[Rfam]
RNA sequence: UUGAUAAAUAGAGGUGCGCUGAAGAUGAGUAUAUAAUAGGUGCUAAGAGGGAAACCCUCAAAACUAUUAUAAAAAGGCUGAUGUGCCGAAGUUGUUGAAUAGUUAUCGAUUCAAUAGCUGGGGGUUUUGUGAAUAACAACGCCACUGUCAUGGUAUUCCAUGGAGCACUAUUUGUUAA
Numbered sequence: 001u002u003g004a005u006a007a008a009u010a011g012a013g014g015u016g017c018g019c020u021g022a023a024g025a026u027g028a029g030u031a032u033a034u035a036a037u038a039g040g041u042g043c044u045a046a047g048a049g050g051g052a053a054a055c056c057c058u059c060a061a062a063a064c065u066a067u068u069a070u071a072a073a074a075a076g077g078c079u080g081a082u083g084u085g086c087c088g089a090a091g092u093u094g095u096u097g098a099a100u101a102g103u104u105a106u107c108g109a110u111u112c113a114a115u116a117g118c119u120g121g122g123g124g125u126u127u128u129g130u131g132a133a134u135a136a137c138a139a140c141g142c143c144a145c146u147g148u149c150a151u152g153g154u155a156u157u158c159c160a161u162g163g164a165g166c167a168c169u170a171u172u173u174g175u176u177a178a
Stems, first nucleotide, its partner, number of pairs: 006173006016086004023079002032071008090119011120146002123143003127139004148163006
The record is a 178-nucleotide RNA sequence from Serpentinicella alkaliphila, which matches "Lysine riboswitch aptamer" in Rfam. A search with the family's covariance model found it, with a score of 107 bits. The base pairs follow the family's consensus structure, which is taken from published work. The organism belongs to Serpentinicella, within Bacteria. About the family: Riboswitches are metabolite binding domains within certain messenger RNAs that serve as precision sensors for their corresponding targets.